[Rfam]
RNA sequence: ACUGGAGGACUAAUCAGACCGAGUCUGAAGAGUGAGACUCAGGUGACAGUAGCCUCCUAAAACAAAAGGGAUGGAGAGAGCAGCCUCAGUCAAGAGAAAAGCAAAGGGCUGACUGUGCCAUCUGACACUU
Number, nucleotide and partner (000 for none) at each position: 001a000002c000003u059004g057005g056006a055007g054008g053009a000010c000011u000012a000013a000014u000015c000016a000017g044018a000019c042020c000021g040022a039023g038024u037025c036026u035027g000028a000029a000030g000031a000032g000033u000034g000035a026036g025037a024038c023039u022040c021041a000042g019043g000044u017045g000046a000047c000048a000049g000050u000051a000052g000053c008054c007055u006056c005057c004058u000059a003060a000061a000062a000063c000064a000065a000066a000067a000068g123069g122070g121071a000072u000073g000074g000075a000076g000077a000078g000079a114080g113081c111082a110083g109084c108085c107086u106087c000088a000089g000090u000091c000092a000093a000094g000095a000096g000097a000098a000099a000100a000101g000102c000103a000104a000105a000106g086107g085108g084109c083110u082111g081112a000113c080114u079115g000116u000117g000118c000119c000120a000121u070122c069123u068124g000125a000126c000127a000128c000129u000130u000

The family of this 130-nucleotide RNA sequence from Chloroceryle aenea is "Small Cajal body specific RNA 4".
The family's consensus secondary structure was predicted with RNAfold.
The family's RNA type in Rfam is small Cajal body RNA.
The organism belongs to Chloroceryle, within Eukaryota.
The family is grouped with related families in Rfam's "SCARNA4 clan".
Rfam's curators write: scaRNAs are a specific class of small nuclear RNAs which localise to the Cajal bodies and guide the modification of RNA polymerase II transcribed spliceosomal RNAs U1, U2, U4, U5 and U12. ACA26 belongs to the H/ACA box class of guide RNAs as it has the predicted hairpin-hinge-hairpin-tail structure, conserved H/ACA-box motifs and is found associated with GAR1.